This 123-nucleotide RNA from Corynebacterium kalinowskii belongs to the Rfam family "SAM (S-adenosyl methionine) riboswitch aptamer".
RNA sequence: GAUCACGAAGCCUGGCCCCAAGCCCUAUACCUGGCCAGCUGGCAACCGCCGAAUCGCUAAGAAGAACGGUGCCCGUAAAGGAAGAUCCGCCUCUGCCCAAUCCGAGCGGAGGAACUGCGAUUU
Number, nucleotide and partner (000 for none) at each position: 001g087002a086003u085004c084005a000006c000007g000008a000009a040010g000011c000012c038013u037014g036015g035016c034017c000018c000019c000020a000021a032022g031023c000024c000025c000026u000027a000028u000029a000030c000031c022032u021033g000034g016035c015036c014037a013038g012039c000040u009041g073042g072043c071044a000045a000046c069047c068048g067049c000050c064051g000052a000053a000054u000055c000056g000057c000058u000059a000060a000061g000062a000063a000064g050065a000066a000067c048068g047069g046070u000071g043072c042073c041074c000075g000076u000077a000078a000079a000080g000081g000082a000083a000084g004085a003086u002087c001088c000089g000090c112091c111092u110093c109094u108095g107096c106097c000098c104099a000100a000101u000102c000103c000104g098105a000106g096107c095108g094109g093110a092111g091112g090113a000114a000115c000116u000117g000118c000119g000120a000121u000122u000123u000
The organism belongs to Corynebacterium, within Bacteria. The family's consensus secondary structure is taken from published work. The family has 40 seed sequences and 2,360 matches in Rfam 15.1.